[Rfam]
RNA sequence: CCAUGGAGGUGGCUGGCAGCAGACCAUGUGCCAUGGAGGUGGCUGG
Dot-bracket structure: ((((((........................))))))..........
Numbered sequence: 001c002c003a004u005g006g007a008g009g010u011g012g013c014u015g016g017c018a019g020c021a022g023a024c025c026a027u028g029u030g031c032c033a034u035g036g037a038g039g040u041g042g043c044u045g046g
Stems, first nucleotide, its partner, number of pairs: 001036006